[Rfam]
RNA sequence: UGGCUGGCAUAGUCAUGUGGAUACUUCGAACGAUUGCUAUCUACUUCCUCGGGACAACGUGCCCUUGUCUAGGGCUGGUCCUGUGAAGAUUUAGUUCCACUGACGCUACCCAGCUUUUUU
Numbered sequence: 001u002g003g004c005u006g007g008c009a010u011a012g013u014c015a016u017g018u019g020g021a022u023a024c025u026u027c028g029a030a031c032g033a034u035u036g037c038u039a040u041c042u043a044c045u046u047c048c049u050c051g052g053g054a055c056a057a058c059g060u061g062c063c064c065u066u067g068u069c070u071a072g073g074g075c076u077g078g079u080c081c082u083g084u085g086a087a088g089a090u091u092u093a094g095u096u097c098c099a100c101u102g103a104c105g106c107u108a109c110c111c112a113g114c115u116u117u118u119u120u
Base pairs, nucleotide, nucleotide: 002115003114004113005112006111007110012104013103014102015101017100018099019098020097
Vault RNA: a 120-nucleotide RNA sequence from Mytilus edulis.
Rfam's curators write: This family of RNAs are found as part of the enigmatic vault ribonucleoprotein complex. The complex consists of a major vault protein (MVP), two minor vault proteins (VPARP and TEP1), and several small untranslated RNA molecules. It has been suggested that the vault complex is involved in drug resistance.
The base pairs follow the family's consensus structure, which is taken from published work.